[Rfam]
Shown here is a 336-nucleotide part of an RNA from Sneathiella litorea, a member of the family "Bacterial large subunit ribosomal RNA". The base pairs follow the family's consensus structure, which is taken from published work.
Nucleotides: 336
Base pairs, nucleotide, nucleotide: 001336002335003334004333009331010330011329012328013327014326015325016324018322019321020320035059036058037057038056039055044049060087061086062085063084064083065082066081067080068079069078070077071076088092100315101314102313103312105310106309107307108306111125112124113123128163129162130161131160132159133158134157135156136153140149141148142147166302167301168300169299171232172231173230176229177228178225179224180223181222182221185220186219187218191214192213196209197208198207199206200205233251234250235249236248237247238246252256262289272288273287274286275285276284277283
Number, partner (000 for none) and nucleotide at each position: 001336u002335g003334a004333g005000a006000g007000a008000a009331c010330u011329a012328u013327g014326u015325u016324g017000a018322a019321g020320g021000a022000a023000c024000u025000c026000g027000g028000c029000a030000a031000a032000a033000u034000g035059a036058c037057c038056c039055c040000g041000u042000a043000a044049c045000u046000u047000c048000g049044g050000g051000a052000g053000a054000a055039g056038g057037g058036g059035u060087a061086c062085c063084u064083c065082u066081c067080u068079u069078u070077g071076g072000g073000c074000a075000a076071c077070c078069a079068g080067g081066g082065g083064g084063g085062g086061g087060u088092g089000g090000c091000a092088c093000a094000g095000a096000c097000u098000u099000g100315g101314g102313g103312g104000u105310g106309g107307c108306g109000a110000c111125u112124g113123u114000u115000u116000a117000u118000u119000a120000a121000a122000a123113a124112c125111a126000u127000a128163g129162g130161a131160c132159u133158c134157u135156g136153c137000g138000a139000a140149g141148u142147c143000g144000c145000a146000a147142g148141a149140c150000g151000a152000c153136g154000u155000a156135u157134a158133g159132g160131g161130u162129c163128u164000g165000a166302c167301g168300c169299c170000u171232g172231c173230c174000c175000g176229g177228u178225g179224c180223u181222g182221g183000a184000a185220g186219g187218u188000u189000a190000a191214g192213a193000g194000g195000a196209g197208c198207g199206g200205u201000g202000a203000g204000a205200g206199c207198u208197g209196c210000g211000a212000a213192u214191c215000g216000a217000a218187g219186c220185c221182c222181c223180a224179g225178u226000a227000a228177a229176c230173g231172g232171c233251g234250g235249c236248c237247g238246u239000a240000a241000c242000u243000a244000u245000a246238a247237c248236g249235g250234u251233c252256c253000u254000a255000a256252g257000g258000u259000a260000g261000c262289g263000a264000a265000a266000u267000u268000c269000c270000u271000u272288g273287u274286c275285g276284g277283g278000u279000a280000a281000g282000u283277u284276c285275c286274g287273a288272c289262c290000u291000g292000c293000a294000c295000g296000a297000a298000u299169g300168g301167c302166g303000u304000a305000a306108c307107g308000a309106c310105u311000u312103c313102c314101c315100c316000g317000c318000u319000g320020u321019c322018u323000c324016c325015a326014a327013c328012a329011u330010a331009g332000g333004c334003u335002c336001a
Lineage of the source: Bacteria > Pseudomonadati > Sneathiellales > Sneathiellaceae > Sneathiella.